This 72-nucleotide RNA from Candidatus Atribacteria bacterium MT.SAG.1 belongs to the Rfam family "tRNA". The family's consensus secondary structure is taken from published work. Rfam classes the family as a transfer RNA. Rfam links the family to the GO term triplet codon-amino acid adaptor activity.
[Rfam]
RNA sequence: GGGUCCAUAACUCAAUUGGUAGAGUAGUAGCCUUUUAAGCUAUUAAUCCGGGUUCGAGUCCCGGUGGACCCA
Numbered sequence: 001g002g003g004u005c006c007a008u009a010a011c012u013c014a015a016u017u018g019g020u021a022g023a024g025u026a027g028u029a030g031c032c033u034u035u036u037a038a039g040c041u042a043u044u045a046a047u048c049c050g051g052g053u054u055c056g057a058g059u060c061c062c063g064g065u066g067g068a069c070c071c072a
Stems, first nucleotide, its partner, number of pairs: 001071007010025004027043005048064005